[Rfam]
RNA sequence: UGAUUGUAGGUGAGAAUUGGAGGAAACCAAACAGACCUCUCAAUCUGUUUGGUUUCCUCCAAUAUCUCAUCUCCGACUU
Number, nucleotide and partner (000 for none) at each position: 001u000002g000003a000004u076005u075006g074007u000008a072009g000010g000011u069012g068013a067014g066015a000016a063017u062018u061019g060020g059021a058022g000023g056024a055025a054026a053027c052028c051029a050030a049031a000032c047033a046034g045035a044036c000037c000038u000039c000040u000041c000042a000043a000044u035045c034046u033047g032048u000049u030050u029051g028052g027053u026054u025055u024056c023057c000058u021059c020060c019061a018062a017063u016064a000065u000066c014067u013068c012069a011070u000071c000072u008073c000074c006075g005076a004077c000078u000079u000
A member of the RNA family "MIR2275 microRNA precursor family" from Actinidia chinensis, 79 nucleotides long. The source organism's lineage runs through Eukaryota, Streptophyta, Spermatophyta, Ericales and Actinidia chinensis. A search with the family's covariance model found it, with a score of 65 bits.